Rfam assigns this 246-nucleotide RNA from Symbiodinium natans to the family "RNase MRP".
RNA sequence: GGAGGCAGAGGAAGCACGGCCACGCAGCCUACACACAGGGAGCUCGCUCCCGAGCAUGCUGCGGGGAAAGUCCCCGUGCCUUUGGGCAGAGAGUGUCAAUGGGAGACCACAGGCCAGCGCCUGAAGCUUGCGGUGAAGCUUUGUGCGGAGCUCUUCGCUUGGGAGCUGGCCACUUGCAGCAGCACAGUCAUGCCGUGAGCACUCGAGAGGGUGCCAACUGAACGGGGCUCAUUCUCCCCAUGCCUC
Numbered sequence: 001g002g003a004g005g006c007a008g009a010g011g012a013a014g015c016a017c018g019g020c021c022a023c024g025c026a027g028c029c030u031a032c033a034c035a036c037a038g039g040g041a042g043c044u045c046g047c048u049c050c051c052g053a054g055c056a057u058g059c060u061g062c063g064g065g066g067a068a069a070g071u072c073c074c075c076g077u078g079c080c081u082u083u084g085g086g087c088a089g090a091g092a093g094u095g096u097c098a099a100u101g102g103g104a105g106a107c108c109a110c111a112g113g114c115c116a117g118c119g120c121c122u123g124a125a126g127c128u129u130g131c132g133g134u135g136a137a138g139c140u141u142u143g144u145g146c147g148g149a150g151c152u153c154u155u156c157g158c159u160u161g162g163g164a165g166c167u168g169g170c171c172a173c174u175u176g177c178a179g180c181a182g183c184a185c186a187g188u189c190a191u192g193c194c195g196u197g198a199g200c201a202c203u204c205g206a207g208a209g210g211g212u213g214c215c216a217a218c219u220g221a222a223c224g225g226g227g228c229u230c231a232u233u234c235u236c237c238c239c240a241u242g243c244c245u246c
Stems, first nucleotide, its partner, number of pairs: 002246005008239001010237003015197006023063006038051005069229002072227004085097004100109003112170001114168001117166002120163003124160004130151002138146002199214006